[Rfam]
RNA sequence: GGGGCCUUAGAACCCCCAGAGCCGUUGUGUAAAUAGCAGUCACCUCGUUUAGUGCGUAUGGUCAUUGCGGUUUGUGAAUC
Numbered sequence: 001g002g003g004g005c006c007u008u009a010g011a012a013c014c015c016c017c018a019g020a021g022c023c024g025u026u027g028u029g030u031a032a033a034u035a036g037c038a039g040u041c042a043c044c045u046c047g048u049u050u051a052g053u054g055c056g057u058a059u060g061g062u063c064a065u066u067g068c069g070g071u072u073u074g075u076g077a078a079u080c
Base pairs, nucleotide, nucleotide: 001016002015003014004013030074031073032072033071034070036068037067038066039065040064042062043061044060
A member of the RNA family "L13-Bacteroidia ribosomal protein leader" from Prevotella koreensis, 80 nucleotides long.
The literature on the family includes a 2020 paper in BMC Microbiol by Eckert and Weinberg, "Discovery of 20 novel ribosomal leader candidates in bacteria and archaea".
NCBI's taxonomy places the organism under Bacteria, Pseudomonadati, Bacteroidales, Prevotellaceae, Prevotella.
The family's RNA type in Rfam is cis-regulatory leader.